[Rfam]
RNA sequence: GUCUGUCGGUGAUGAGACCACGGAUCUAGCGUCAGGCAUGGCGCCCGACACGUAUGAGGAGAUCUUUCCAUGCUGCCUUCCUUCUGAGACCACAC
Numbered sequence: 001g002u003c004u005g006u007c008g009g010u011g012a013u014g015a016g017a018c019c020a021c022g023g024a025u026c027u028a029g030c031g032u033c034a035g036g037c038a039u040g041g042c043g044c045c046c047g048a049c050a051c052g053u054a055u056g057a058g059g060a061g062a063u064c065u066u067u068c069c070a071u072g073c074u075g076c077c078u079u080c081c082u083u084c085u086g087a088g089a090c091c092a093c094a095c
Base pairs, nucleotide, nucleotide: 001095002094004092005091
The family of this 95-nucleotide RNA from Scophthalmus maximus is "Small nucleolar RNA U83B". Gene Ontology terms of the family: RNA processing and nucleolus. Pairs were carried over by alignment from the consensus structure. From the family's description: U83B belongs to the C/D family of snoRNAs. U83B like U83A has no documented RNA target and they share the same host gene with the C/D box snoRNA U43 (RPL3). The family has 21 seed sequences and 966 matches in Rfam 15.1.